[Rfam]
RNA: Purine riboswitch aptamer
RNA sequence: AAAUCAUACAUGCAUCUCCUUUGUAUAUACUCGCGAAUAUGGCGUGAGAGUCUCUACCGGGUCACCUUAAACGACCUGACUAUGAAGGAGCAGACCCUUCGU
Numbered sequence: 001a002a003a004u005c006a007u008a009c010a011u012g013c014a015u016c017u018c019c020u021u022u023g024u025a026u027a028u029a030c031u032c033g034c035g036a037a038u039a040u041g042g043c044g045u046g047a048g049a050g051u052c053u054c055u056a057c058c059g060g061g062u063c064a065c066c067u068u069a070a071a072c073g074a075c076c077u078g079a080c081u082a083u084g085a086a087g088g089a090g091c092a093g094a095c096c097c098u099u100c101g102u
Stems, first nucleotide, its partner, number of pairs: 018088008030048006058078006